Shown here is a 161-nucleotide RNA sequence from Nocardioides zhouii, a member of the family "c-di-AMP riboswitch aptamer (ydaO/yuaA leader)". About the family: This family represents a conserved RNA structure found upstream of the ydaO and yuaA genes in Bacillus subtilis and related genes in other bacteria. It scores 57 bits against the family's covariance model.

[Rfam]
RNA sequence: CGCCGAGUCGUGGACCACGCCCUGCACCACCCGUGGUCGACGAGCCGGGGAACCAACCUUCCCCCUGGGGUGAAUCCCCUGCAAGGCGCAUCGCGCGAGCGGUGCGUGGAGCAGGGGUAGGCAACGUCGUGCCGAACCCGUCAGCUCACCUGGUAGGCGUA
Numbered sequence: 001c002g003c004c005g006a007g008u009c010g011u012g013g014a015c016c017a018c019g020c021c022c023u024g025c026a027c028c029a030c031c032c033g034u035g036g037u038c039g040a041c042g043a044g045c046c047g048g049g050g051a052a053c054c055a056a057c058c059u060u061c062c063c064c065c066u067g068g069g070g071u072g073a074a075u076c077c078c079c080u081g082c083a084a085g086g087c088g089c090a091u092c093g094c095g096c097g098a099g100c101g102g103u104g105c106g107u108g109g110a111g112c113a114g115g116g117g118u119a120g121g122c123a124a125c126g127u128c129g130u131g132c133c134g135a136a137c138c139c140g141u142c143a144g145c146u147c148a149c150c151u152g153g154u155a156g157g158c159g160u161a
Base pairs, nucleotide, nucleotide: 001159002158003157004156008043009042010041044154045153046152047151048150049149054067055066068139069138070137076117077116078115079114080113081112082111120133121132122131123130